[Rfam]
RNA sequence: AGGGCGUGCCUUUCAGGCAUCCUCUCCUAAAACUUUCAAAGGCCGCCCUCCGGGGCGGCCCUUUUUUUGUCGCGA
Numbered sequence: 001a002g003g004g005c006g007u008g009c010c011u012u013u014c015a016g017g018c019a020u021c022c023u024c025u026c027c028u029a030a031a032a033c034u035u036u037c038a039a040a041g042g043c044c045g046c047c048c049u050c051c052g053g054g055g056c057g058g059c060c061c062u063u064u065u066u067u068u069g070u071c072g073c074g075a
Stems, first nucleotide, its partner, number of pairs: 008018004041060008
Annotation:
Rfam assigns this 75-nucleotide sequence from Sphingomonas sp. NFR15 to the family "Makes More Granules Regulator RNA (mmgR)". The pairing is the family consensus, mapped onto this sequence. About the family: SuhB later renamed mmgR (makes more granules regulator) was a putative non-coding RNA found multiple times in the Agrobacterium tumefaciens genome and related alpha-proteobacteria. Other non-coding RNAs uncovered in the same analysis include: speF, ybhL, metA, and serC.Several studies inSinorhizobium meliloti showed that suhB element is indeed a non-coding RNA:firstly it was detected on Northern blot and called Sm8RNA, secondly in an RNAseq study referred to as SmelC689.The mutant phenotype's (strain lacking the small RNA) cytoplasm contains higher content of polyhydroxybutyrate (PBH)storage granules than wild type strain. The sRNA is required to limit the PBH intracellular accumulation when the nitrogen-fixing Sinorhizobium meliloti is under condition of surplus carbon in relation to nitrogen. It has been renamed to mmgR. Further study confirmed that mmgR fine-tunes the regulation of PBH storage.Northern blot confirmed the expression of the sRNA in other rhizobia species. Lineage of the source: Bacteria > Pseudomonadati > Sphingomonadales > Sphingomonadaceae > Sphingomonas. The family is grouped with related families in Rfam's "suhB sRNA clan".